Record summary: Rfam assigns this 73-nucleotide RNA sequence from Chimaeribacter arupi to the family "PyrD leader". The match comes from Rfam's covariance-model search (78 bits).

RNA sequence: UUUCCCUUUUGCCGGGCAUUCGCGGAUAAUACGCCCCCGGUUUGCCACCGGGAACUCAGGAGAUUUCAUGUAU
Numbered sequence: 001u002u003u004c005c006c007u008u009u010u011g012c013c014g015g016g017c018a019u020u021c022g023c024g025g026a027u028a029a030u031a032c033g034c035c036c037c038c039g040g041u042u043u044g045c046c047a048c049c050g051g052g053a054a055c056u057c058a059g060g061a062g063a064u065u066u067c068a069u070g071u072a073u
Stems, first nucleotide, its partner, number of pairs: 036052006